[Rfam]
RNA sequence: AGAGGUUGCAAGUUUGAGACCAUAGCAGAAGUGCUCAUGAUGUGGCCAUGUCAGAUUCCAACAAAUCUGUGAAUUCUGCU
Numbered sequence: 001a002g003a004g005g006u007u008g009c010a011a012g013u014u015u016g017a018g019a020c021c022a023u024a025g026c027a028g029a030a031g032u033g034c035u036c037a038u039g040a041u042g043u044g045g046c047c048a049u050g051u052c053a054g055a056u057u058c059c060a061a062c063a064a065a066u067c068u069g070u071g072a073a074u075u076c077u078g079c080u
Base pairs, nucleotide, nucleotide: 013048018047020045021044024080025079026078027077028076029075030074031043032042033041052069053068054067055066056065057064